[Rfam]
Small nucleolar RNA SNORD19: a 72-nucleotide sequence from Hucho hucho. Its Rfam clan is "SNORD19 clan".
RNA sequence: GAGAAAUGAGGAUUUAUGUAAACUACUGAUGUCUGUGAAGACUAAUAAUCCAACUCUGAUCUCAUCCAUAGC
Numbered sequence: 001g002a003g004a005a006a007u008g009a010g011g012a013u014u015u016a017u018g019u020a021a022a023c024u025a026c027u028g029a030u031g032u033c034u035g036u037g038a039a040g041a042c043u044a045a046u047a048a049u050c051c052a053a054c055u056c057u058g059a060u061c062u063c064a065u066c067c068a069u070a071g072c
Stems, first nucleotide, its partner, number of pairs: 001063004
The pairing is the family consensus, mapped onto this sequence. The literature on the family includes a 2001 paper in EMBO J by Huttenhofer et al., "RNomics: an experimental approach that identifies 201 candidates for novel, small, non-messenger RNAs in mouse".